[Rfam]
RNA sequence: UUCUUAUCAAGAGAGGCAGAGGGACUGGCCCGUCGAAGCCUCAGCAACCGCCGUAUUGAACGGUAAGGUGCUAAUUCCAGCAAGUUGGAAAACAACUUGGGAGAUGAGAA
Numbered sequence: 001u002u003c004u005u006a007u008c009a010a011g012a013g014a015g016g017c018a019g020a021g022g023g024a025c026u027g028g029c030c031c032g033u034c035g036a037a038g039c040c041u042c043a044g045c046a047a048c049c050g051c052c053g054u055a056u057u058g059a060a061c062g063g064u065a066a067g068g069u070g071c072u073a074a075u076u077c078c079a080g081c082a083a084g085u086u087g088g089a090a091a092a093c094a095a096c097u098u099g100g101g102a103g104a105u106g107a108g109a110a
Base pairs, nucleotide, nucleotide: 001110002109003108004107005106006105007104008103013042014041015040016039017038021031022030023029025080026079027078028077043072044071045070046069048068049067050064051063052062053061076102081099082098083097084096085095086094